[Rfam]
RNA sequence: ACCGUUACACCGGAUGCUCUCCUCCUCCCUGCGUCCGGUGUAGGAACGCACCGGGCGCUCUCCUCCUCCCUGCGCCCUGUGUUCAAUCGGUCGGCGACACCUCUCCUCCUCCCUGGUGUCGCCGACCAAUU
Numbered sequence: 001a002c003c004g005u006u007a008c009a010c011c012g013g014a015u016g017c018u019c020u021c022c023u024c025c026u027c028c029c030u031g032c033g034u035c036c037g038g039u040g041u042a043g044g045a046a047c048g049c050a051c052c053g054g055g056c057g058c059u060c061u062c063c064u065c066c067u068c069c070c071u072g073c074g075c076c077c078u079g080u081g082u083u084c085a086a087u088c089g090g091u092c093g094g095c096g097a098c099a100c101c102u103c104u105c106c107u108c109c110u111c112c113c114u115g116g117u118g119u120c121g122c123c124g125a126c127c128a129a130u131u
Stems, first nucleotide, its partner, number of pairs: 007041003011037007049081003053077006090126011
RNA: Alphaproteobacterial ar14
Organism: Antarcticimicrobium sediminis